[Rfam]
RNA sequence: CGAGUUGGCUGGGCGGUCGCGUCGAGGCUCCCCCGGGAGCCCGCCGAGGAACGUCCGGACUCCGCAGAGCAGGGUGGUUGCUAACGGCAACCCGGGGUGACCCGCGGGAAAGUGCCACAGAGAACAAACCGCCGGCCCGUCUUCGGGCCGGUAAGGGUGAAACGGUGGGGUAAGAGCCCACCAGCACCCCGGGCGACCGGGGUGGCUAGGUAAACCCCACCCGGAGCAAGGCCAAGCAAGGCCCGGGCCGCAAGACCCGAGCCGGCGCAGGCGUCCGAGGGCUGCUCGCCCGAGCCUGCGGGUAGGCCGCAAGAGCAUGCCGGCAACGGCACGCCGAGAUGGAUGACCGCCCAGCGGCGACCACAGUCGCCGCGGACAAAAUCCGGCGUACAGGCCGACUCGUCCG
Numbered sequence: 001c002g003a004g005u006u007g008g009c010u011g012g013g014c015g016g017u018c019g020c021g022u023c024g025a026g027g028c029u030c031c032c033c034c035g036g037g038a039g040c041c042c043g044c045c046g047a048g049g050a051a052c053g054u055c056c057g058g059a060c061u062c063c064g065c066a067g068a069g070c071a072g073g074g075u076g077g078u079u080g081c082u083a084a085c086g087g088c089a090a091c092c093c094g095g096g097g098u099g100a101c102c103c104g105c106g107g108g109a110a111a112g113u114g115c116c117a118c119a120g121a122g123a124a125c126a127a128a129c130c131g132c133c134g135g136c137c138c139g140u141c142u143u144c145g146g147g148c149c150g151g152u153a154a155g156g157g158u159g160a161a162a163c164g165g166u167g168g169g170g171u172a173a174g175a176g177c178c179c180a181c182c183a184g185c186a187c188c189c190c191g192g193g194c195g196a197c198c199g200g201g202g203u204g205g206c207u208a209g210g211u212a213a214a215c216c217c218c219a220c221c222c223g224g225a226g227c228a229a230g231g232c233c234a235a236g237c238a239a240g241g242c243c244c245g246g247g248c249c250g251c252a253a254g255a256c257c258c259g260a261g262c263c264g265g266c267g268c269a270g271g272c273g274u275c276c277g278a279g280g281g282c283u284g285c286u287c288g289c290c291c292g293a294g295c296c297u298g299c300g301g302g303u304a305g306g307c308c309g310c311a312a313g314a315g316c317a318u319g320c321c322g323g324c325a326a327c328g329g330c331a332c333g334c335c336g337a338g339a340u341g342g343a344u345g346a347c348c349g350c351c352c353a354g355c356g357g358c359g360a361c362c363a364c365a366g367u368c369g370c371c372g373c374g375g376a377c378a379a380a381a382u383c384c385g386g387c388g389u390a391c392a393g394g395c396c397g398a399c400u401c402g403u404c405c406g
Base pairs, nucleotide, nucleotide: 001402002401003400004399005398006397007396008395009394010393011391012351013350014349015348016347017346018345020046021045023043024042026040051389052388053387055386056385057384058383059382060226061225062224063223067287068286069285070284072222073221074220075219076218077091078090079089080088081087092106093104094103095102096101107217108216112215113214114211115210116209129156130155131152132151133150134149135148136147137146138145139144164182165181166180167179168178169177184206185204186203187202188201189200190199191198192197230308231307232306233305267299268298269297270296271295272294279291280290281289282288315334316333318331319330320329321328322327

Shown here is a 406-nucleotide sequence from Actinoplanes sp. N902-109, a member of the family "Bacterial RNase P class A". The source organism's lineage runs through Bacteria, Bacillati, Actinomycetes, Micromonosporales and Actinoplanes. The match comes from Rfam's covariance-model search (270 bits).